[Rfam]
RNA sequence: GCGAAACGGCGCCGUUUACACCGUCUCGCCGUCUGCUGCACAUCCGCCCGUCACGGCACGGGGCGGAAGAGACGAAAGGA
Numbered sequence: 001g002c003g004a005a006a007c008g009g010c011g012c013c014g015u016u017u018a019c020a021c022c023g024u025c026u027c028g029c030c031g032u033c034u035g036c037u038g039c040a041c042a043u044c045c046g047c048c049c050g051u052c053a054c055g056g057c058a059c060g061g062g063g064c065g066g067a068a069g070a071g072a073c074g075a076a077a078g079g080a
Base pairs, nucleotide, nucleotide: 001029002028003027004026006024007023008022009021011019031073032072033071034070036069037068043067044066045065046064047063048062049061
RNA: aspS RNA